[Rfam]
RNA sequence: UUCGAGAGGCUAGAGUCUCGCCCAGGCAUGGCAUUGCCCCAGCAUGCUGGAGUCCUUGGAGAGCAGCCGCUGGCCUUAUUCGCUGGCUGUGGCCCUGUGGCCAGGCCGGUCAUCAGGCCAGGGACAGGU
Numbered sequence: 001u002u003c004g005a006g007a008g009g010c011u012a013g014a015g016u017c018u019c020g021c022c023c024a025g026g027c028a029u030g031g032c033a034u035u036g037c038c039c040c041a042g043c044a045u046g047c048u049g050g051a052g053u054c055c056u057u058g059g060a061g062a063g064c065a066g067c068c069g070c071u072g073g074c075c076u077u078a079u080u081c082g083c084u085g086g087c088u089g090u091g092g093c094c095c096u097g098u099g100g101c102c103a104g105g106c107c108g109g110u111c112a113u114c115a116g117g118c119c120a121g122g123g124a125c126a127g128g129u
Base pairs, nucleotide, nucleotide: 002059003058004057005056006055009053010052011051014048015047017046020043021042025038026037027036028035070121071120072119073118074117075116076115082110083109084108085107086106088104090103091102092101093100